[Rfam]
RNA sequence: ACAGAUCUUCAGGGCGGGGUGCAAGUCCCCACCGGCGGUAAUCACAGGGCGGCGCAAAGCGCCGUGAAUCUGUGCGAGCCCGCGAGCCGAAAGGCAGGAUUCCGGUGAGAUUCCGGAGCCGACGGUAUAGUCCGGAUGGUAGAAGAUGAGA
Numbered sequence: 001a002c003a004g005a006u007c008u009u010c011a012g013g014g015c016g017g018g019g020u021g022c023a024a025g026u027c028c029c030c031a032c033c034g035g036c037g038g039u040a041a042u043c044a045c046a047g048g049g050c051g052g053c054g055c056a057a058a059g060c061g062c063c064g065u066g067a068a069u070c071u072g073u074g075c076g077a078g079c080c081c082g083c084g085a086g087c088c089g090a091a092a093g094g095c096a097g098g099a100u101u102c103c104g105g106u107g108a109g110a111u112u113c114c115g116g117a118g119c120c121g122a123c124g125g126u127a128u129a130g131u132c133c134g135g136a137u138g139g140u141a142g143a144a145g146a147u148g149a150g151a
Stems, first nucleotide, its partner, number of pairs: 005147006017029003031131002033121002035083004086095003101117005123134003